[Rfam]
RNA sequence: AAUGUCCUGCUUUCCCGAAGCCCUGCUUUCCUAUGCGGGGUACUUAUGUAGAGAAAGCGGGACAUU
Numbered sequence: 001a002a003u004g005u006c007c008u009g010c011u012u013u014c015c016c017g018a019a020g021c022c023c024u025g026c027u028u029u030c031c032u033a034u035g036c037g038g039g040g041u042a043c044u045u046a047u048g049u050a051g052a053g054a055a056a057g058c059g060g061g062a063c064a065u066u
Base pairs, nucleotide, nucleotide: 001066002065003064004063005062006061007060008059009058010057011056012055013054014053016051020041021040022039023038024037025036026035028033
RNA: DUF3800-VIII RNA
Organism: Clostridiales bacterium NK3B98